[Rfam]
RNA sequence: AGUGAUGGUAGAGGCGCAAAAACCAUUAGUAAGUUCUCUCUAGAGUGAUAAGACUCGUCGACAGGAGCUGAAAGGGGAAUUUGCCGAAGUGGAAAGACGCUUAUCUGUCUGAAGCUGGAUCUGUGUUGAAUAAAUGCAGAGCUGUCAUCCAAUACCUACCCUGGAAUUGGAUGGAGAACUAUCUCACAA
Numbered sequence: 001a002g003u004g005a006u007g008g009u010a011g012a013g014g015c016g017c018a019a020a021a022a023c024c025a026u027u028a029g030u031a032a033g034u035u036c037u038c039u040c041u042a043g044a045g046u047g048a049u050a051a052g053a054c055u056c057g058u059c060g061a062c063a064g065g066a067g068c069u070g071a072a073a074g075g076g077g078a079a080u081u082u083g084c085c086g087a088a089g090u091g092g093a094a095a096g097a098c099g100c101u102u103a104u105c106u107g108u109c110u111g112a113a114g115c116u117g118g119a120u121c122u123g124u125g126u127u128g129a130a131u132a133a134a135u136g137c138a139g140a141g142c143u144g145u146c147a148u149c150c151a152a153u154a155c156c157u158a159c160c161c162u163g164g165a166a167u168u169g170g171a172u173g174g175a176g177a178a179c180u181a182u183c184u185c186a187c188a189a
Base pairs, nucleotide, nucleotide: 007183008182009181010180011179016084017083018082019081020080023077024076032069033068034067035066036065038064039063088116089115090114091110092109093108095106096105117143118142120140121139122138123137124136125135126134127133145174146173147172148171149170150169151168152167153166
RNA: Lysine riboswitch aptamer
Organism: Guptibacillus hwajinpoensis